[Rfam]
Nucleotides: 081
Base pairs, nucleotide, nucleotide: 001081002080003079004078005077006076008075009074010073011072012071013070014069015068016067017066019064020063021062022061023060024059025058026057027056045052
Number, partner (000 for none) and nucleotide at each position: 001081a002080g003079g004078g005077g006076a007000u008075g009074a010073g011072g012071u013070a014069g015068u016067a017066g018000u019064u020063u021062g022061u023060a024059u025058a026057g027056u028000u029000u030000u031000a032000g033000g034000a035000u036000c037000a038000c039000a040000c041000c042000a043000g044000a045052u046000c047000u048000g049000g050000g051000a052045g053000a054000u055000a056027a057026c058025u059024a060023u061022a062021c063020a064019g065000u066017c067016u068015a069014c070013u071012g072011u073010c074009u075008u076006u077005c078004c079003u080002u081001u
About this RNA
The record is an 81-nucleotide RNA from Gouania willdenowi, which matches "let-7 microRNA precursor family" in Rfam. For this family Rfam cites "Control of developmental timing in animals" (Rougvie, Nat Rev Genet, 2001). The base pairs follow the family's consensus structure, which was predicted with RNAalifold. From the family's description: This family represents the microRNAs (miRNA) let-7 and mir-98. let-7 was identified from a study of developmental timing in C. elegans, and was later shown to be part of a much larger class of non-coding RNAs termed miRNAs. Rfam 15.1 lists 8,694 matches to the family in 797 species.